The record is a 129-nucleotide RNA from Streptacidiphilus jiangxiensis, which matches "c-di-AMP riboswitch aptamer (ydaO/yuaA leader)" in Rfam. The match comes from Rfam's covariance-model search (90 bits). The pairing is the family consensus, mapped onto this sequence.
[Rfam]
RNA sequence: UCGUGUGUAUCGCCUAAUCCUCAUGGAACCGGGGACCCAACGCACCUGGGGUGUAUCGGCCUUACGGCCGUAGGAGACCUCCCUCUCCGAACCCGUCAGCUAACCCGGUCGGCGAAGGGACGGAAAGGA
Number, nucleotide and partner (000 for none) at each position: 001u000002c000003g000004u000005g000006u000007g000008u000009a000010u000011c114012g113013c112014c111015u000016a000017a000018u027019c026020c025021u000022c000023a000024u000025g020026g019027a018028a109029c108030c107031g106032g105033g104034g000035a000036c000037c000038c048039a047040a000041c000042g000043c000044a000045c000046c000047u039048g038049g094050g093051g092052u000053g000054u000055a000056u000057c070058g069059g068060c067061c000062u000063u000064a000065c000066g000067g060068c059069c058070g057071u000072a000073g088074g087075a086076g085077a000078c000079c000080u000081c000082c000083c000084u000085c076086u075087c074088c073089g000090a000091a000092c051093c050094c049095g000096u000097c000098a000099g000100c000101u000102a000103a000104c033105c032106c031107g030108g029109u028110c000111g014112g013113c012114g011115a000116a000117g000118g000119g000120a000121c000122g000123g000124a000125a000126a000127g000128g000129a000